[Rfam]
RNA sequence: AGCCUUAUAUAUACGAGCCGAGAUUUUAUCAUACACCAGACCGUUACGACUGAUGAGGCUCCCAAGAUAAGUAAAGCG
Numbered sequence: 001a002g003c004c005u006u007a008u009a010u011a012u013a014c015g016a017g018c019c020g021a022g023a024u025u026u027u028a029u030c031a032u033a034c035a036c037c038a039g040a041c042c043g044u045u046a047c048g049a050c051u052g053a054u055g056a057g058g059c060u061c062c063c064a065a066g067a068u069a070a071g072u073a074a075a076g077c078g
Stems, first nucleotide, its partner, number of pairs: 002077002005074002008071001010069003017062001020061003024058007
Background:
The record is a 78-nucleotide sequence from Schistosoma japonicum, which matches "mir-3492 microRNA precursor family" in Rfam. The match comes from Rfam's covariance-model search (54 bits). The family's consensus secondary structure was predicted with RNAalifold. Lineage of the source: Eukaryota > Bilateria > Trematoda > Digenea > Schistosoma.